This 76-nucleotide sequence from Flavobacteriaceae bacterium 3519-10 belongs to the Rfam family "Flavo-1 RNA". It scores 65 bits against the family's covariance model. It is annotated as a small RNA. The family's consensus secondary structure is taken from published work.
RNA sequence: CCCUAGCCCCGAUGGUAGCGGCAUCCUUUUGCGAAGCGCAGCGGAGCAAAAGAUAUAGCGGACAGCGGGAAAAAGC
Numbered sequence: 001c002c003c004u005a006g007c008c009c010c011g012a013u014g015g016u017a018g019c020g021g022c023a024u025c026c027u028u029u030u031g032c033g034a035a036g037c038g039c040a041g042c043g044g045a046g047c048a049a050a051a052g053a054u055a056u057a058g059c060g061g062a063c064a065g066c067g068g069g070a071a072a073a074a075g076c
Base pairs, nucleotide, nucleotide: 009068010067011066013064014063018059019058023054024053025052029049030048031047032046